[Rfam]
Nucleotides: 394
Stems, first nucleotide, its partner, number of pairs: 049084002052081004099221005113214003134184006156169005240254004275376004279304004321366004338358008
Number, partner (000 for none) and nucleotide at each position: 001000a002000c003000a004000a005000c006000a007000a008000a009000a010000a011000c012000a013000a014000c015000a016000a017000c018000g019000c020000u021000g022000a023000a024000c025000c026000a027000a028000c029000a030000c031000a032000a033000c034000a035000a036000a037000a038000a039000c040000a041000a042000g043000a044000c045000g046000u047000a048000a049084c050083g051000a052081c053080u054079c055078c056000a057000a058000c059000a060000c061000a062000a063000c064000a065000a066000g067000a068000a069000c070000a071000a072000c073000a074000g075000g076000g077000u078055g079054g080053a081052g082000g083050c084049g085000c086000a087000a088000c089000a090000a091000a092000c093000u094000g095000a096000u097000u098000c099221u100220u101219u102218u103217g104000g105000a106000g107000a108000g109000g110000a111000g112000u113214u114213g115212c116000c117000c118000g119000a120000c121000u122000g123000g124000g125000u126000u127000c128000u129000c130000c131000c132000c133000c134184g135183a136182c137181c138180g139179g140000c141000c142000c143000g144000a145000g146000a147000a148000c149000g150000a151000u152000a153000a154000a155000a156169c157168u158167g159166c160165c161000c162000c163000g164000a165160g166159g167158c168157a169156g170000c171000g172000g173000c174000c175000a176000g177000c178000a179139c180138c181137g182136g183135u184134c185000a186000g187000a188000c189000c190000c191000g192000u193000a194000a195000g196000g197000g198000u199000g200000g201000c202000g203000g204000c205000a206000a207000u208000a209000u210000c211000a212115g213114c214113g215000u216000c217103c218102a219101a220100a221099g222000g223000a224000a225000u226000c227000c228000g229000c230000u231000u232000g233000u234000u235000c236000u237000u238000g239000a240254g241253u242252c243251c244000c245000g246000g247000c248000u249000u250000g251243g252242g253241a254240c255000c256000a257000g258000c259000a260000c261000a262000g263000g264000a265000c266000c267000a268000u269000g270000a271000c272000g273000u274000c275376c276375g277374g278373c279304a280303g281302g282301c283000a284000a285000c286000c287000g288000a289000c290000a291000a292000c293000a294000a295000c296000a297000a298000c299000a300000a301282g302281c303280c304279u305000g306000u307000a308000c309000a310000c311000a312000a313000g314000a315000a316000g317000a318000a319000c320000a321366a322365a323364g324363c325000a326000c327000g328000a329000c330000c331000g332000a333000c334000u335000g336000c337000a338358g339357g340356g341355g342354g343353a344352g345351c346000c347000a348000a349000u350000g351345g352344c353343u354342c355341c356340c357339c358338c359000u360000u361000g362000u363324g364323c365322u366321u367000u368000g369000u370000g371000g372000c373278g374277c375276c376275g377000c378000c379000a380000g381000g382000c383000g384000c385000u386000c387000c388000c389000c390000g391000c392000c393000c394000c